[Rfam]
RNA sequence: UUCCUUGAAUGGGGAGUCCGUCGCGACGGGCUGAGAUGGUAGGCCGGACGCCCGCCGAACCCUUGGAACCUGAUGCGGGUAAUGCCGUCGAAGGGAAAUUAUGGAAAAAGUUG
Dot-bracket structure: .....(((.((((..(((((......)))))......(((.(((.....))).)))...)))......(((...((((......))))...)))..).)))............
Description: A member of the RNA family "TPP riboswitch aptamer (THI element)" from Cerasicoccus arenae, 113 nucleotides long. From the family's description: Vitamin B(1) in its active form thiamin pyrophosphate (TPP) is an essential coenzyme that is synthesised by coupling of pyrimidine and thiazole moieties in bacteria. Its family is annotated with thiamine pyrophosphate binding in the Gene Ontology. A search with the family's covariance model found it, with a score of 60 bits.